Background: This 291-nucleotide RNA from Schistosoma curassoni belongs to the Rfam family "Metazoan signal recognition particle RNA". It scores 161 bits against the family's covariance model. Rfam describes the family as follows. The signal recognition particle (SRP) is a universally conserved ribonucleoprotein. It is involved in the co-translational targeting of proteins to membranes. The eukaryotic SRP consists of a 300-nucleotide 7S RNA and six proteins: SRPs 72, 68, 54, 19, 14, and 9. Archaeal SRP consists of a 7S RNA and homologues of the eukaryotic SRP19 and SRP54 proteins. Rfam classes the family as a non-coding RNA gene. Its Rfam clan is "SRP clan".
RNA sequence: GCUGGGUGUGGUGGCGUGCGCCUGUAAUCUAGUUACUUGGAGGCCAGGGUGCGGGAUUUCGUGGGACCGGGAUUUCUGGCAUAUAUGUGCUCAUGUUGAUCGGGCAUCCACGUUAAGCACGGCGCCGAUAUGGAUGAUCUGUCGGAGGGUGAAUUGUCCAGGUCAUCUAAGGAGGGGCGGACCGGCCCAGAGGGAAACCCAGCAGGCAACAGUCCCCAUGUGGUGCGGUAGCGGGACAGCACCUGUGAAUGGUGUCCAAGUGAUAGCCCGGUUGGGGCGUGAAGAUUCAAU
Numbered sequence: 001g002c003u004g005g006g007u008g009u010g011g012u013g014g015c016g017u018g019c020g021c022c023u024g025u026a027a028u029c030u031a032g033u034u035a036c037u038u039g040g041a042g043g044c045c046a047g048g049g050u051g052c053g054g055g056a057u058u059u060c061g062u063g064g065g066a067c068c069g070g071g072a073u074u075u076c077u078g079g080c081a082u083a084u085a086u087g088u089g090c091u092c093a094u095g096u097u098g099a100u101c102g103g104g105c106a107u108c109c110a111c112g113u114u115a116a117g118c119a120c121g122g123c124g125c126c127g128a129u130a131u132g133g134a135u136g137a138u139c140u141g142u143c144g145g146a147g148g149g150u151g152a153a154u155u156g157u158c159c160a161g162g163u164c165a166u167c168u169a170a171g172g173a174g175g176g177g178c179g180g181a182c183c184g185g186c187c188c189a190g191a192g193g194g195a196a197a198c199c200c201a202g203c204a205g206g207c208a209a210c211a212g213u214c215c216c217c218a219u220g221u222g223g224u225g226c227g228g229u230a231g232c233g234g235g236a237c238a239g240c241a242c243c244u245g246u247g248a249a250u251g252g253u254g255u256c257c258a259a260g261u262g263a264u265a266g267c268c269c270g271g272u273u274g275g276g277g278c279g280u281g282a283a284g285a286u287u288c289a290a291u
Stems, first nucleotide, its partner, number of pairs: 001044003004023007028041003049291002053287002057284007065273007076266003080262003084258001087255002091252004096247001101245004107239001108235002111233005117226004122221003127164003131160008140151004166172002174216005185207003192200002